[Rfam]
RNA: Small nucleolar RNA Z118/Z121/Z120
RNA sequence: UGUUUGCCGUGAUGACAUCUACAAGGACGGUAUCUGAGUAGGGUGGCUCUUAAAAUGGUGCCCCUUCUUCGAUUACAACCAAUCUGAAUGAGAUUCUGAGCAAACA
Number, nucleotide and partner (000 for none) at each position: 001u106002g105003u104004u103005u102006g101007c100008c000009g000010u000011g000012a000013u000014g000015a000016c000017a000018u000019c000020u000021a000022c000023a000024a000025g000026g000027a000028c000029g000030g000031u000032a000033u000034c000035u000036g000037a000038g068039u000040a066041g065042g064043g063044u000045g000046g000047c000048u000049c000050u000051u000052a000053a000054a000055a000056u000057g000058g000059u000060g000061c000062c000063c043064c042065u041066u040067c000068u038069u000070c000071g000072a000073u000074u000075a000076c000077a000078a000079c000080c000081a000082a000083u000084c000085u000086g000087a000088a000089u000090g000091a000092g000093a000094u000095u000096c000097u000098g000099a000100g007101c006102a005103a004104a003105c002106a001